[Rfam]
RNA sequence: UACCUUCAUCUCUAUACAGCAAAUUCAACUCAUUGUAGAGAGACGGAAGUAGGUCAAAAGAACCGAAGGAAUGCACC
Numbered sequence: 001u002a003c004c005u006u007c008a009u010c011u012c013u014a015u016a017c018a019g020c021a022a023a024u025u026c027a028a029c030u031c032a033u034u035g036u037a038g039a040g041a042g043a044c045g046g047a048a049g050u051a052g053g054u055c056a057a058a059a060g061a062a063c064c065g066a067a068g069g070a071a072u073g074c075a076c077c
Base pairs, nucleotide, nucleotide: 003073005071006070007069009043010042011041012040013039046074052064053063054062
Dot-bracket structure: ..(.(((.(((((.........................)))))..[.....(((.......)))....))).)]...
Background: The family of this 77-nucleotide RNA from Gloeothece citriformis is "Glutamine riboswitch aptamer (glnA leader)". The organism belongs to Gloeothece citriformis, within Bacteria. For this family Rfam cites "Bacterial aptamers that selectively bind glutamine" (Ames and Breaker, RNA Biol, 2011). Its family is annotated with glutamine binding in the Gene Ontology. Pairs were carried over by alignment from the consensus structure, which is taken from published work.